[Rfam]
RNA sequence: CCGUUCUUGUUUUAUUUGCUAAGCGAUUACUCAAGCUUAGCGAUUAUCAAACAGAACGAAUAGAAAAGGCAGCUAAUCACUCCAUAAUGUUGAGCCGACUUUCCAGGGCUUCAGCAUUACUAAAUGCGCGCCACAUUA
Numbered sequence: 001c002c003g004u005u006c007u008u009g010u011u012u013u014a015u016u017u018g019c020u021a022a023g024c025g026a027u028u029a030c031u032c033a034a035g036c037u038u039a040g041c042g043a044u045u046a047u048c049a050a051a052c053a054g055a056a057c058g059a060a061u062a063g064a065a066a067a068g069g070c071a072g073c074u075a076a077u078c079a080c081u082c083c084a085u086a087a088u089g090u091u092g093a094g095c096c097g098a099c100u101u102u103c104c105a106g107g108g109c110u111u112c113a114g115c116a117u118u119a120c121u122a123a124a125u126g127c128g129c130g131c132c133a134c135a136u137u138a
Base pairs, nucleotide, nucleotide: 002058003057004056005055006054007053010049016043017042018041019040020039021038022037086118087117088116089115090114093110094109095108096107
Rfam assigns this 138-nucleotide sequence from Drosophila rhopaloa to the family "Small nucleolar RNA psi18S-1377". The source organism's lineage runs through Eukaryota, Allotriocarida, Diptera, Acalyptratae and Sophophora. Pairs were carried over by alignment from the consensus structure, which was predicted with RNAalifold. Its family is annotated with nucleolus and RNA processing in the Gene Ontology. The match comes from Rfam's covariance-model search (117 bits). Rfam describes the family as follows. psi18S-1377 is a member of the H/ACA class of snoRNA. This family is responsible for guiding the modification of uridines 1377 and 1279 to pseudouridine in Drosophila 18S rRNA.